RNA sequence: GCGGAGACAAAUGUUUCCGUUCACUCCUCACACCACACUCCGCCUGAGCGUAUGUUCGGGCGGCUU
Numbered sequence: 001g002c003g004g005a006g007a008c009a010a011a012u013g014u015u016u017c018c019g020u021u022c023a024c025u026c027c028u029c030a031c032a033c034c035a036c037a038c039u040c041c042g043c044c045u046g047a048g049c050g051u052a053u054g055u056u057c058g059g060g061c062g063g064c065u066u
Stems, first nucleotide, its partner, number of pairs: 001020008041062007
RNA: Cyanobacterial functional RNA 1